[Rfam]
RNA sequence: GGAAAUGGUUUGCUGGGUACCACGCUGGGCUCACAUCUUAAUUGUUAUUAUAUUGGGUGAACACAGCUGGUGGUAUCUCAGUUAACCUUUCUCA
Numbered sequence: 001g002g003a004a005a006u007g008g009u010u011u012g013c014u015g016g017g018u019a020c021c022a023c024g025c026u027g028g029g030c031u032c033a034c035a036u037c038u039u040a041a042u043u044g045u046u047a048u049u050a051u052a053u054u055g056g057g058u059g060a061a062c063a064c065a066g067c068u069g070g071u072g073g074u075a076u077c078u079c080a081g082u083u084a085a086c087c088u089u090u091c092u093c094a
Base pairs, nucleotide, nucleotide: 009084015079016077017076019074020073022071023070025066026065027064029062031060032059

This 94-nucleotide sequence from Tetranychus urticae belongs to the Rfam family "mir-317 microRNA precursor family".
It is one of the family's seed sequences.
Pairs were carried over by alignment from the consensus structure, which was predicted with RNAalifold.
Its family is annotated with RISC complex and miRNA-mediated post-transcriptional gene silencing in the Gene Ontology.